[Rfam]
RNA: Group II catalytic intron D1-D4-6
RNA sequence: AAAGUUUCUUACAGUGAAAUCUUAGCCAAGAACGCUGGCCCUGAGUCGUACGCUGACCGUGGUGACACGUUGGGUGUGGUAUCGACAAGGGGACAACUAGGCGCAGCGAGUGAGCUCCGAAAACAGAGUUUUUCCGAAUGCCGACACCGUCGAGGUUGUGGAAGGCAGUACGGACGAGGUCGCUAUUGGCGAGACCGCGUUCGGUUCGGCGGAGUCAAGGAGCU
Dot-bracket structure: ...........(((((...(.([.[[.).)..))))).((((..((((((((((.(.((((....)))).).))))...)).)))).))))...................((.((((((..............(((((((((..(((..........)))...)))....((((((.((((.......]].])))).))))))))))))))))))).)......
Numbered sequence: 001a002a003a004g005u006u007u008c009u010u011a012c013a014g015u016g017a018a019a020u021c022u023u024a025g026c027c028a029a030g031a032a033c034g035c036u037g038g039c040c041c042u043g044a045g046u047c048g049u050a051c052g053c054u055g056a057c058c059g060u061g062g063u064g065a066c067a068c069g070u071u072g073g074g075u076g077u078g079g080u081a082u083c084g085a086c087a088a089g090g091g092g093a094c095a096a097c098u099a100g101g102c103g104c105a106g107c108g109a110g111u112g113a114g115c116u117c118c119g120a121a122a123a124c125a126g127a128g129u130u131u132u133u134c135c136g137a138a139u140g141c142c143g144a145c146a147c148c149g150u151c152g153a154g155g156u157u158g159u160g161g162a163a164g165g166c167a168g169u170a171c172g173g174a175c176g177a178g179g180u181c182g183c184u185a186u187u188g189g190c191g192a193g194a195c196c197g198c199g200u201u202c203g204g205u206u207c208g209g210c211g212g213a214g215u216c217a218a219g220g221a222g223c224u
Stems, first nucleotide, its partner, number of pairs: 012037005020030001022028001023192001025190002039091004045086004049081002051076004056071001058069004111218001112216001114215006134209006140166003145160003171203006178196004